The family of this 120-nucleotide sequence from Carpinus fangiana is "small nucleolar RNA snoR126".

RNA sequence: AGGCUAUGAUGAUAACUUACAUUUCUCGAUUCUGAGUUAUGUUGUUCAAUAGUGGACCAAGAGCAACUGCACUUACACGUGCUGCUCUAUGAUGACUGUGUUUGUGCGUGUCUGAGCCUU
Number, nucleotide and partner (000 for none) at each position: 001a119002g118003g117004c116005u000006a000007u000008g000009a000010u000011g000012a000013u000014a000015a000016c000017u000018u000019a000020c000021a000022u000023u000024u000025c000026u000027c000028g000029a000030u000031u000032c000033u000034g000035a000036g000037u000038u000039a000040u000041g000042u000043u000044g000045u000046u000047c000048a000049a000050u000051a000052g000053u000054g000055g000056a000057c000058c000059a000060a000061g000062a000063g000064c000065a000066a000067c000068u000069g000070c000071a000072c000073u000074u000075a000076c000077a000078c000079g000080u000081g000082c000083u000084g000085c000086u000087c000088u000089a000090u000091g000092a000093u000094g000095a000096c000097u000098g000099u000100g000101u000102u000103u000104g000105u000106g000107c000108g000109u000110g000111u000112c000113u000114g000115a000116g004117c003118c002119u001120u000
The family's consensus secondary structure was predicted with RNAalifold. NCBI's taxonomy places the organism under Eukaryota, Streptophyta, Mesangiospermae, eudicotyledons, Carpinus. A reference for the family is Chen and Wu (2009), "Mining small RNA sequencing data: a new approach to identify small nucleolar RNAs in Arabidopsis", Nucleic Acids Res.